[Rfam]
RNA: Group II catalytic intron D1-D4-3
Organism: Vitreoscilla filiformis
RNA sequence: GUCGCUGCGAGGCGGGGUCUGGAGGAAGCCGUAGACAAGAGGUGCGAGGCGACGGACAGAAACCACAUAGAGGAGGCCUAGGACGCCAGACGAGCCGGCACUGGAUGGCGAAGUCUGAUGGUACAGCGUCUAGGGUAGAUGUGGCGCUUGUGCAUCGACAGUUCACGUU
Numbered sequence: 001g002u003c004g005c006u007g008c009g010a011g012g013c014g015g016g017g018u019c020u021g022g023a024g025g026a027a028g029c030c031g032u033a034g035a036c037a038a039g040a041g042g043u044g045c046g047a048g049g050c051g052a053c054g055g056a057c058a059g060a061a062a063c064c065a066c067a068u069a070g071a072g073g074a075g076g077c078c079u080a081g082g083a084c085g086c087c088a089g090a091c092g093a094g095c096c097g098g099c100a101c102u103g104g105a106u107g108g109c110g111a112a113g114u115c116u117g118a119u120g121g122u123a124c125a126g127c128g129u130c131u132a133g134g135g136u137a138g139a140u141g142u143g144g145c146g147c148u149u150g151u152g153c154a155u156c157g158a159c160a161g162u163u164c165a166c167g168u169u
Base pairs, nucleotide, nucleotide: 002015003014004013005012006011028169030167031166032165035162036161041156042155043154044153045152046151047149048148049147050146051145063144064143065142066141067140068139076136077135078134081131082130083129084128085127086126088116089115090114091113094109095108096107097106